[Rfam]
RNA sequence: AUGCAUAUAUUCUUGCUGUUCUAAUUUUGCAAUAAUCAGGGCAGGCUAAACAUAUAUUAAGACCAUGCAUGUGUCCCCAGACCUACUUCUUCCCCUAGGUCUGGUUUUAUAAAUGCUGGUGAUAAAC
Numbered sequence: 001a002u003g004c005a006u007a008u009a010u011u012c013u014u015g016c017u018g019u020u021c022u023a024a025u026u027u028u029g030c031a032a033u034a035a036u037c038a039g040g041g042c043a044g045g046c047u048a049a050a051c052a053u054a055u056a057u058u059a060a061g062a063c064c065a066u067g068c069a070u071g072u073g074u075c076c077c078c079a080g081a082c083c084u085a086c087u088u089c090u091u092c093c094c095c096u097a098g099g100u101c102u103g104g105u106u107u108u109a110u111a112a113a114u115g116c117u118g119g120u121g122a123u124a125a126a127c
Stems, first nucleotide, its partner, number of pairs: 003057001005055001016044007024036003062120004067116002077104009